[Rfam]
RNA: UnaL2 LINE 3' element
Organism: Synaphobranchus kaupii
RNA sequence: AUUUGUACUUAUUGUACGUCGCUUUGGAUAAAAGCGUCUGCCAAAUGAUUGUAA
Numbered sequence: 001a002u003u004u005g006u007a008c009u010u011a012u013u014g015u016a017c018g019u020c021g022c023u024u025u026g027g028a029u030a031a032a033a034g035c036g037u038c039u040g041c042c043a044a045a046u047g048a049u050u051g052u053a054a
Stems, first nucleotide, its partner, number of pairs: 013043001014041003020036006
Dot-bracket structure: ............((((...((((((.....))))))..))).)...........